[Rfam]
This 99-nucleotide RNA from Clostridium tyrobutyricum belongs to the Rfam family "SAM riboswitch aptamer (S box leader)".
A search with the family's covariance model found it, with a score of 83 bits.
Taxonomically the source falls in Clostridium tyrobutyricum (Bacteria, Bacillati, Bacillota, Eubacteriales).

RNA sequence: UUUCUAUCAAGAGAGGCUGAGGGACUGGCCCUAUGACGCCCGGCAACCUAAUACAUUUAAUGGUGCUAAUUCCAGUAGGAUUAUCCUUGAAGAUGGGAA
Numbered sequence: 001u002u003u004c005u006a007u008c009a010a011g012a013g014a015g016g017c018u019g020a021g022g023g024a025c026u027g028g029c030c031c032u033a034u035g036a037c038g039c040c041c042g043g044c045a046a047c048c049u050a051a052u053a054c055a056u057u058u059a060a061u062g063g064u065g066c067u068a069a070u071u072c073c074a075g076u077a078g079g080a081u082u083a084u085c086c087u088u089g090a091a092g093a094u095g096g097g098a099a
Base pairs, nucleotide, nucleotide: 001099002098003097004096005095006094007093008092013041015040016039017038021031022030023029025075026074027073028072042067043066044065045064047063048062049059050058051057071091077087078086079085080084